[Rfam]
RNA sequence: GCCGAGCUUGGUUGUGCGAGCUUGUAACUCGAGCGAGGGCAAUAAGGUGUUGCGGACGGGUUGACUCGGUCUGCAGGGUUGGGCUCAGGAUUGCUUUGCUGGCCCGCCCGUUCCAAGUCGGGUAGUGGGUCAUGUGGCCUGGGCGAAGGCCCAAGCUGUCUGGCCCUUGAAGAGGAGGGCACCGCGCCAGGCUGGCCUCACAGAGCAGCGACUACCUCCCGCUCUCGACAGUGGAAGGACAACGGGCCGGUGCAGUCUCUGGCCCAGUACACCCUAAGGACCGUCUCUCCCGAACCACCACUUUU
Numbered sequence: 001g002c003c004g005a006g007c008u009u010g011g012u013u014g015u016g017c018g019a020g021c022u023u024g025u026a027a028c029u030c031g032a033g034c035g036a037g038g039g040c041a042a043u044a045a046g047g048u049g050u051u052g053c054g055g056a057c058g059g060g061u062u063g064a065c066u067c068g069g070u071c072u073g074c075a076g077g078g079u080u081g082g083g084c085u086c087a088g089g090a091u092u093g094c095u096u097u098g099c100u101g102g103c104c105c106g107c108c109c110g111u112u113c114c115a116a117g118u119c120g121g122g123u124a125g126u127g128g129g130u131c132a133u134g135u136g137g138c139c140u141g142g143g144c145g146a147a148g149g150c151c152c153a154a155g156c157u158g159u160c161u162g163g164c165c166c167u168u169g170a171a172g173a174g175g176a177g178g179g180c181a182c183c184g185c186g187c188c189a190g191g192c193u194g195g196c197c198u199c200a201c202a203g204a205g206c207a208g209c210g211a212c213u214a215c216c217u218c219c220c221g222c223u224c225u226c227g228a229c230a231g232u233g234g235a236a237g238g239a240c241a242a243c244g245g246g247c248c249g250g251u252g253c254a255g256u257c258u259c260u261g262g263c264c265c266a267g268u269a270c271a272c273c274c275u276a277a278g279g280a281c282c283g284u285c286u287c288u289c290c291c292g293a294a295c296c297a298c299c300a301c302u303u304u305u
Stems, first nucleotide, its partner, number of pairs: 001040003004023007028037003044304006051297002054295001057292002059289001063286001066283001068281001070280003075275005081265005088258002091255003095252001099250008108238002111236005117229006124223003127166006134159005140153005167172001174219005185210003192203003

Annotation: A member of the RNA family "Plant signal recognition particle RNA" from Camphora micrantha, 305 nucleotides long. It is annotated as a non-coding RNA gene. The family's consensus secondary structure is taken from published work.